The record is a 127-nucleotide RNA from Castor canadensis, which matches "Small nucleolar RNA SNORA51" in Rfam. ACA51 is a member of the H/ACA class of snoRNA that guide the sites of modification of uridines to pseudouridines. Its family is annotated with RNA processing and nucleolus in the Gene Ontology. Taxonomically the source falls in Castor (Eukaryota, Teleostomi, Euteleostomi, Sarcopterygii). It is annotated as an H/ACA-box small nucleolar RNA.
RNA sequence: GGCCUCAAAGUGUUUGCUACAGGCUAUGUUCUUACACUGACUGUAUAGGAAAAGGAGGCAAACCCUAUUCCAUAUGCACCUCAGCCCAGGCCCGUGUCUGAUCUGUACUGUGAAUGGGGAGACAUGG
Numbered sequence: 001g002g003c004c005u006c007a008a009a010g011u012g013u014u015u016g017c018u019a020c021a022g023g024c025u026a027u028g029u030u031c032u033u034a035c036a037c038u039g040a041c042u043g044u045a046u047a048g049g050a051a052a053a054g055g056a057g058g059c060a061a062a063c064c065c066u067a068u069u070c071c072a073u074a075u076g077c078a079c080c081u082c083a084g085c086c087c088a089g090g091c092c093c094g095u096g097u098c099u100g101a102u103c104u105g106u107a108c109u110g111u112g113a114a115u116g117g118g119g120a121g122a123c124a125u126g127g
Base pairs, nucleotide, nucleotide: 002059003058004057005056006055020043021042022041027036028035029034068119069118070117071116072115073114082105083104084103087100088099089098090097091096